RNA sequence: GAGUUACGCUCAGCAGCGAGGUUAAGCCGAUCGAGGUGGAGCCGAAGCGAAAGCGAGUCUGAAUAGGGCGUCAUAGUUGCUGGGAGUAGACCCGAAACCGGGUGAUCUAUCCAUGGGCAGGGUGAAAGGACGGUAACACGUCGUGGAGGCCCGAACCCACUUAGGUUGAAAACUGAGGGGAUGACCUGUGGAUAGGAGUGAAAGGCUAAUCAAACUCGGAGAUAGCUGGUU
Numbered sequence: 001g002a003g004u005u006a007c008g009c010u011c012a013g014c015a016g017c018g019a020g021g022u023u024a025a026g027c028c029g030a031u032c033g034a035g036g037u038g039g040a041g042c043c044g045a046a047g048c049g050a051a052a053g054c055g056a057g058u059c060u061g062a063a064u065a066g067g068g069c070g071u072c073a074u075a076g077u078u079g080c081u082g083g084g085a086g087u088a089g090a091c092c093c094g095a096a097a098c099c100g101g102g103u104g105a106u107c108u109a110u111c112c113a114u115g116g117g118c119a120g121g122g123u124g125a126a127a128g129g130a131c132g133g134u135a136a137c138a139c140g141u142c143g144u145g146g147a148g149g150c151c152c153g154a155a156c157c158c159a160c161u162u163a164g165g166u167u168g169a170a171a172a173c174u175g176a177g178g179g180g181a182u183g184a185c186c187u188g189u190g191g192a193u194a195g196g197a198g199u200g201a202a203a204g205g206c207u208a209a210u211c212a213a214a215c216u217c218g219g220a221g222a223u224a225g226c227u228g229g230u231u
Stems, first nucleotide, its partner, number of pairs: 005088003009084009020043004026037003047054002057069004091229002094226001098219006107195011118183001120152004127144001129142004156180003160177005197207003

Annotation: A member of the RNA family "Bacterial large subunit ribosomal RNA" from Trichloromonas acetexigens, 231 nucleotides of a longer RNA. Taxonomically the source falls in Trichloromonas (Bacteria, Thermodesulfobacteriota, Desulfuromonadia, Desulfuromonadales). The family's consensus secondary structure is taken from published work. The match comes from Rfam's covariance-model search (2999 bits).